Annotation:
The family of this 105-nucleotide sequence from Canis lupus is "mir-8834 microRNA precursor family". NCBI's taxonomy places the organism under Eukaryota, Chordata, Craniata, Carnivora, Canis lupus. Gene Ontology terms of the family: miRNA-mediated post-transcriptional gene silencing and RISC complex.
RNA sequence: AGGAGGAACAACCGCAGUGGCAGGGCCAGCUCUGGAUCCCUGGAGUCAGCUCCUGCAGUCACCAUGGAGCUCUCUGUCUACAGGGCCUGGAGGCUCCGGGGCGGA
Numbered sequence: 001a002g003g004a005g006g007a008a009c010a011a012c013c014g015c016a017g018u019g020g021c022a023g024g025g026c027c028a029g030c031u032c033u034g035g036a037u038c039c040c041u042g043g044a045g046u047c048a049g050c051u052c053c054u055g056c057a058g059u060c061a062c063c064a065u066g067g068a069g070c071u072c073u074c075u076g077u078c079u080a081c082a083g084g085g086c087c088u089g090g091a092g093g094c095u096c097c098g099g100g101g102c103g104g105a
Stems, first nucleotide, its partner, number of pairs: 002097004009089002012085002019078007028071007040058003